[Rfam]
RNA: Bacterial antisense RNA HPnc0260
RNA sequence: GGAAUUAAAAAAUGCAGACGAAAAAAAAGCACGGCUAGCCGUGCUUUUUCAAAUUUGAUACAGACGAAAAAGAUCCUCGACUAGAGUCGCUCCCAAACCAUUUGCGUGGUAGUUCGCGGUGUCAUAACCAGGAUGCCUUUCUCGCUCUUAUCUAAAGGUACUACUAAAUUCUAUGGUAGACACGAUUGGACUCGAACCAACGACCCCUACCA
Numbered sequence: 001g002g003a004a005u006u007a008a009a010a011a012a013u014g015c016a017g018a019c020g021a022a023a024a025a026a027a028a029g030c031a032c033g034g035c036u037a038g039c040c041g042u043g044c045u046u047u048u049u050c051a052a053a054u055u056u057g058a059u060a061c062a063g064a065c066g067a068a069a070a071a072g073a074u075c076c077u078c079g080a081c082u083a084g085a086g087u088c089g090c091u092c093c094c095a096a097a098c099c100a101u102u103u104g105c106g107u108g109g110u111a112g113u114u115c116g117c118g119g120u121g122u123c124a125u126a127a128c129c130a131g132g133a134u135g136c137c138u139u140u141c142u143c144g145c146u147c148u149u150a151u152c153u154a155a156a157g158g159u160a161c162u163a164c165u166a167a168a169u170u171c172u173a174u175g176g177u178a179g180a181c182a183c184g185a186u187u188g189g190a191c192u193c194g195a196a197c198c199a200a201c202g203a204c205c206c207c208u209a210c211c212a
Base pairs, nucleotide, nucleotide: 024049025048026047030043031042032041033040174209175208176207179204183202184201186200187199188198189197